RNA: Alphaproteobacterial ar14
Organism: Rhizobium leguminosarum
RNA sequence: GUGGACCGACGCGCUCACCCCCUCCGAGCCGCUUCGGUUCGACGGACAGCAUCCCUCCUCCCAGGCUGUCGGUCACUAUCGAAGCCCGGCGCCCUCUCCCGCGCCGGGCUUUCGUU
Numbered sequence: 001g002u003g004g005a006c007c008g009a010c011g012c013g014c015u016c017a018c019c020c021c022c023u024c025c026g027a028g029c030c031g032c033u034u035c036g037g038u039u040c041g042a043c044g045g046a047c048a049g050c051a052u053c054c055c056u057c058c059u060c061c062c063a064g065g066c067u068g069u070c071g072g073u074c075a076c077u078a079u080c081g082a083a084g085c086c087c088g089g090c091g092c093c094c095u096c097u098c099c100c101g102c103g104c105c106g107g108g109c110u111u112u113c114g115u116u
Stems, first nucleotide, its partner, number of pairs: 007036003011032003014028001041074003045070006082111011